The record is a 74-nucleotide RNA sequence from Trypanosoma cruzi, which matches "Trypanosomatid snoRNA TB11Cs4H3" in Rfam. Gene Ontology terms of the family: RNA processing and nucleolus. It is one of the family's seed sequences. On this family, see Liang et al., RNA 2005: "A genome-wide analysis of C/D and H/ACA-like small nucleolar RNAs in Trypanosoma brucei reveals a trypanosome-specific pattern of rRNA modification".
[Rfam]
RNA sequence: AGCGCAACAACCCUUGGGCCGGUGGCGCACUGUCGGUGCCGCGCGUGGCGCCCCCUGUCGGUUGCGCGAGAGUU
Dot-bracket structure: .(((((((.......((((..............................)))).......))))))).......